[Rfam]
RNA sequence: AAAAACUGCUAGGGGCGCCAUUUGGCUGAGAUAGGAAACUAGACCCUUUAAACCUGAUUUGGUUAAGACCAACGUAGGAAAGUAGAUACAUAGUAUG
Numbered sequence: 001a002a003a004a005a006c007u008g009c010u011a012g013g014g015g016c017g018c019c020a021u022u023u024g025g026c027u028g029a030g031a032u033a034g035g036a037a038a039c040u041a042g043a044c045c046c047u048u049u050a051a052a053c054c055u056g057a058u059u060u061g062g063u064u065a066a067g068a069c070c071a072a073c074g075u076a077g078g079a080a081a082g083u084a085g086a087u088a089c090a091u092a093g094u095a096u097g
Stems, first nucleotide, its partner, number of pairs: 006085005011047004017026003033040002053078004059072004
The record is a 97-nucleotide RNA from Staphylococcus simulans, which matches "TPP riboswitch aptamer (THI element)" in Rfam. From the family's description: Vitamin B(1) in its active form thiamin pyrophosphate (TPP) is an essential coenzyme that is synthesised by coupling of pyrimidine and thiazole moieties in bacteria. The family's consensus secondary structure is taken from published work. Gene Ontology term of the family: thiamine pyrophosphate binding. The match comes from Rfam's covariance-model search (75 bits). The organism belongs to Staphylococcus, within Bacteria.